[Rfam]
RNA sequence: AAUUUCACGGAAGCGUUGAAGCCUGCCUCAGUACACGGUCACCUUAGGGCAGGUGGAGCCAAUGGUGAGCCCGGCCAGAGGAGUA
Numbered sequence: 001a002a003u004u005u006c007a008c009g010g011a012a013g014c015g016u017u018g019a020a021g022c023c024u025g026c027c028u029c030a031g032u033a034c035a036c037g038g039u040c041a042c043c044u045u046a047g048g049g050c051a052g053g054u055g056g057a058g059c060c061a062a063u064g065g066u067g068a069g070c071c072c073g074g075c076c077a078g079a080g081g082a083g084u085a
Stems, first nucleotide, its partner, number of pairs: 002084005009076002013059002021054007029047001037072002039068005

The family of this 85-nucleotide RNA sequence from Deinococcus peraridilitoris is "c-di-GMP-II-GCG riboswitch aptamer". Clan: c-di-GMP_II riboswitch clan. Lineage of the source: Bacteria > Deinococci > Deinococcales > Deinococcus > Deinococcus peraridilitoris. The sequence is in the family's curated seed alignment.